[Rfam]
RNA sequence: AUUGUUCACUCUCCCUCAAGGGCUUCCAGCAAUUGCUUGGAAACCAGAUCCUGAUCACUAGCAAUGCUCGAGGCCUUUUUGAGGAGAGUGAAGAAAAC
Dot-bracket structure: .....((((((((((..(((((((((...........................................)))))))))..).))))))))).......
Numbered sequence: 001a002u003u004g005u006u007c008a009c010u011c012u013c014c015c016u017c018a019a020g021g022g023c024u025u026c027c028a029g030c031a032a033u034u035g036c037u038u039g040g041a042a043a044c045c046a047g048a049u050c051c052u053g054a055u056c057a058c059u060a061g062c063a064a065u066g067c068u069c070g071a072g073g074c075c076u077u078u079u080u081g082a083g084g085a086g087a088g089u090g091a092a093g094a095a096a097a098c
Stems, first nucleotide, its partner, number of pairs: 006091009015081001018078009